[Rfam]
RNA sequence: GCGAAAGUCAAAAGAGAGAUUCCUUCAAUGGAACACCGUAGGGACAAGUCGCGGCUCUGCCAAGGGCUGAGGAUGAAUUUCUCAGGUACCAACAUUUUGACUGGACA
Numbered sequence: 001g002c003g004a005a006a007g008u009c010a011a012a013a014g015a016g017a018g019a020u021u022c023c024u025u026c027a028a029u030g031g032a033a034c035a036c037c038g039u040a041g042g043g044a045c046a047a048g049u050c051g052c053g054g055c056u057c058u059g060c061c062a063a064g065g066g067c068u069g070a071g072g073a074u075g076a077a078u079u080u081c082u083c084a085g086g087u088a089c090c091a092a093c094a095u096u097u098u099g100a101c102u103g104g105a106c107a
Base pairs, nucleotide, nucleotide: 006102007101008100009099010098011097012096013095020033021032022031023030035087036086037085038083042081043080044079048074049073
Shown here is a 107-nucleotide RNA sequence from Clostridiaceae bacterium JG1575, a member of the family "Glycine riboswitch aptamer". The pairing is the family consensus, mapped onto this sequence. Rfam describes the family as follows. This family represents the bacterial glycine riboswitch.